[Rfam]
Overview: Rfam assigns this 104-nucleotide RNA sequence from Salinisphaera shabanensis to the family "Glycine riboswitch aptamer". Taxonomically the source falls in Salinisphaera shabanensis (Bacteria, Pseudomonadati, Pseudomonadota, Salinisphaera). About the family: This family represents the bacterial glycine riboswitch. Rfam links the family to the GO term glycine biosynthetic process. It scores 42 bits against the family's covariance model.

RNA sequence: CAUAUCCGAAGAGUCGCGCGGGCGCCAGGCUCGUGUGCACCGAAGGAGCAAACGCACGGUGGUUCCGCCGUGGGUGAAUCUCUCAGGUUCAGUGACGGAAGGGG
Numbered sequence: 001c002a003u004a005u006c007c008g009a010a011g012a013g014u015c016g017c018g019c020g021g022g023c024g025c026c027a028g029g030c031u032c033g034u035g036u037g038c039a040c041c042g043a044a045g046g047a048g049c050a051a052a053c054g055c056a057c058g059g060u061g062g063u064u065c066c067g068c069c070g071u072g073g074g075u076g077a078a079u080c081u082c083u084c085a086g087g088u089u090c091a092g093u094g095a096c097g098g099a100a101g102g103g104g
Base pairs, nucleotide, nucleotide: 001103003101005099006098007097008096015037016036017035018034019033020032021031039088040087041086042084043083046082047081048080052075053074